This 77-nucleotide sequence from Argiope bruennichi belongs to the Rfam family "Vault RNA".
A search with the family's covariance model found it, with a score of 44 bits.
The source organism's lineage runs through Eukaryota, Metazoa, Arachnida, Araneidae and Argiope.

RNA sequence: GAGCAGGCUUGGUCUAGUGGUUACUUCGAGACAUUUGAAAACCCACUCUUUGACCACGGACGCUGUCCUGCCUUUUG
Numbered sequence: 001g002a003g004c005a006g007g008c009u010u011g012g013u014c015u016a017g018u019g020g021u022u023a024c025u026u027c028g029a030g031a032c033a034u035u036u037g038a039a040a041a042c043c044c045a046c047u048c049u050u051u052g053a054c055c056a057c058g059g060a061c062g063c064u065g066u067c068c069u070g071c072c073u074u075u076u077g
Base pairs, nucleotide, nucleotide: 003071004070005069006068007067012061013060014059015058017057018056019055020054026053027052028051029050